Shown here is a 98-nucleotide sequence from Clostridium sp. N3C, a member of the family "Purine riboswitch aptamer".
[Rfam]
RNA sequence: AAAGUUAUAAUAUGAAUUACUUAUAUAUACCCAUAAUAUGGAUGGGAGUUUCUACCGGAAGCCGUAAAUUUCCGACUAUAAGUGAGGGUUAAUUUUGU
Numbered sequence: 001a002a003a004g005u006u007a008u009a010a011u012a013u014g015a016a017u018u019a020c021u022u023a024u025a026u027a028u029a030c031c032c033a034u035a036a037u038a039u040g041g042a043u044g045g046g047a048g049u050u051u052c053u054a055c056c057g058g059a060a061g062c063c064g065u066a067a068a069u070u071u072c073c074g075a076c077u078a079u080a081a082g083u084g085a086g087g088g089u090u091a092a093u094u095u096u097g098u
Base pairs, nucleotide, nucleotide: 018084019083020082021081022080023079024078025077030046031045032044033043034042056074057073058072059071060070061069

Its family is annotated with purine nucleobase biosynthetic process in the Gene Ontology. A search with the family's covariance model found it, with a score of 77 bits. The base pairs follow the family's consensus structure, which is taken from published work. NCBI's taxonomy places the organism under Bacteria, Bacillati, Bacillota, Clostridia, Clostridium.